[Rfam]
RNA: SAM riboswitch aptamer (S box leader)
Organism: Flavobacterium beibuense
RNA sequence: UUCUUAUCCAGAAAGAUCGAGGGAUUUGACCCUAUGACGUCUUGGCAACCUGUUCAUUAAUUUGAAUAAGGUGCCACAUUCAACCACAUGUAAAUGUGGAAAGAUAAGUU
Number, nucleotide and partner (000 for none) at each position: 001u000002u000003c108004u107005u106006a105007u104008c103009c000010a000011g000012a000013a043014a042015g041016a040017u039018c000019g000020a000021g032022g031023g030024a000025u000026u083027u082028g081029a080030c023031c022032c021033u000034a000035u000036g000037a000038c000039g017040u016041c015042u014043u013044g075045g074046c073047a072048a000049c071050c070051u000052g067053u066054u065055c064056a000057u000058u000059a000060a000061u000062u000063u000064g055065a054066a053067u052068a000069a000070g050071g049072u047073g046074c045075c044076a000077c000078a000079u102080u029081c028082a027083a026084c099085c098086a097087c096088a095089u094090g000091u000092a000093a000094a089095u088096g087097u086098g085099g084100a000101a000102a079103g008104a007105u006106a005107a004108g003109u000110u000